This 115-nucleotide RNA from Mahella australiensis belongs to the Rfam family "Mahella-1 RNA".
Lineage of the source: Bacteria > Bacillati > Mahellales > Mahellaceae > Mahella australiensis.
It is one of the family's seed sequences.
[Rfam]
RNA sequence: CCCGAGCUGUCCAACGCCGCAACCUAAUGCGGGUCCGUAUCAUACGGAUGGCAGCAAAUAACGCCAUGUGAGGAACAGGGGCGUUAUGUUAAAACCGGAUGUUUCUGCCGGUAAA
Numbered sequence: 001c002c003c004g005a006g007c008u009g010u011c012c013a014a015c016g017c018c019g020c021a022a023c024c025u026a027a028u029g030c031g032g033g034u035c036c037g038u039a040u041c042a043u044a045c046g047g048a049u050g051g052c053a054g055c056a057a058a059u060a061a062c063g064c065c066a067u068g069u070g071a072g073g074a075a076c077a078g079g080g081g082c083g084u085u086a087u088g089u090u091a092a093a094a095c096c097g098g099a100u101g102u103u104u105c106u107g108c109c110g111g112u113a114a115a
Stems, first nucleotide, its partner, number of pairs: 033049006058087008067077003094112005
The family's consensus secondary structure is taken from published work.